Rfam assigns this 88-nucleotide RNA sequence from Populus trichocarpa to the family "Small nucleolar RNA snoR14". Taxonomically the source falls in Populus (Eukaryota, Viridiplantae, Mesangiospermae, Pentapetalae).

[Rfam]
RNA sequence: GCGAGGUGAAGAUAGAAAUUCAUGUCUGUCAAUCCACUGACUUAGUAACUGUGUGAUGUUAUCUUGAAUCCCGACAGGUUCUGAUCGC
Number, nucleotide and partner (000 for none) at each position: 001g088002c087003g086004a085005g000006g000007u000008g000009a000010a000011g000012a000013u000014a000015g000016a000017a000018a000019u000020u000021c000022a000023u000024g000025u000026c000027u000028g000029u000030c000031a000032a000033u000034c000035c000036a000037c000038u000039g000040a000041c000042u000043u000044a000045g000046u000047a000048a000049c000050u000051g000052u000053g000054u000055g000056a000057u000058g000059u000060u000061a000062u000063c000064u000065u000066g000067a000068a000069u000070c000071c000072c000073g000074a000075c000076a000077g000078g000079u000080u000081c000082u000083g000084a000085u004086c003087g002088c001